[Rfam]
RNA sequence: UCGUGCCAGACAAAGUAACCUUCGGGGUGAAAUCCGUGCAGAGUGGAGAGAAGGAGUGCUUGACCUUCCUGCAAGGGUAAAUAUAUGCCCUGAUGCGUCCGGGCGGACGCUGCUUGCAUGGUACGGAUUGCAGGUCAUUCCGUAUUUCAUGCCCGGUGACGCUAUGUGCCUACUGCAACCUGCCAACAGGCAUACGGGGCAAGCGAGGUUUCUUAUGACAAG
Dot-bracket structure: ...(((............((.....))..........)))...........................(((....)))........(((((((.(((((((((((....((.....))..(((((((.............)))))))....)))))..)))))...(((((..................))))))))))))).....................